Rfam assigns this 104-nucleotide RNA sequence from Roseicella frigidaeris to the family "Glycine riboswitch aptamer". This family represents the bacterial glycine riboswitch.

[Rfam]
RNA sequence: CCAAGUGACGCGGGAGAGAGCCUGCCGGUCCUCCAGGAUCGGGCAGGCCGCCGAAGGAGCAACCCCCCAGGAAACUCUCAGGCACCCAGGACCGCGUUACGAGG
Numbered sequence: 001c002c003a004a005g006u007g008a009c010g011c012g013g014g015a016g017a018g019a020g021c022c023u024g025c026c027g028g029u030c031c032u033c034c035a036g037g038a039u040c041g042g043g044c045a046g047g048c049c050g051c052c053g054a055a056g057g058a059g060c061a062a063c064c065c066c067c068c069a070g071g072a073a074a075c076u077c078u079c080a081g082g083c084a085c086c087c088a089g090g091a092c093c094g095c096g097u098u099a100c101g102a103g104g
Stems, first nucleotide, its partner, number of pairs: 006099008020048007050083003053079002057077003063070001
The source organism's lineage runs through Bacteria, Alphaproteobacteria, Acetobacterales, Roseomonadaceae and Roseicella.
It scores 63 bits against the family's covariance model.